Shown here is a 109-nucleotide RNA from Mucilaginibacter sp. JRF, a member of the family "SAM riboswitch aptamer (S box leader)".

RNA sequence: UACUUAUCCAGAAAGACGGAGGGAAAGGCCCUAUGACGUCUUAGCAACCUGUACUAUAAAGGUAUAAGGUGCUAAUUCCUGCCCGGUAACAUGCCGGGAUAGAUAAGAU
Numbered sequence: 001u002a003c004u005u006a007u008c009c010a011g012a013a014a015g016a017c018g019g020a021g022g023g024a025a026a027g028g029c030c031c032u033a034u035g036a037c038g039u040c041u042u043a044g045c046a047a048c049c050u051g052u053a054c055u056a057u058a059a060a061g062g063u064a065u066a067a068g069g070u071g072c073u074a075a076u077u078c079c080u081g082c083c084c085g086g087u088a089a090c091a092u093g094c095c096g097g098g099a100u101a102g103a104u105a106a107g108a109u
Stems, first nucleotide, its partner, number of pairs: 003107006013042005021031003026080003043073004048069002051065004077101001082098006
Source information: The match comes from Rfam's covariance-model search (95 bits).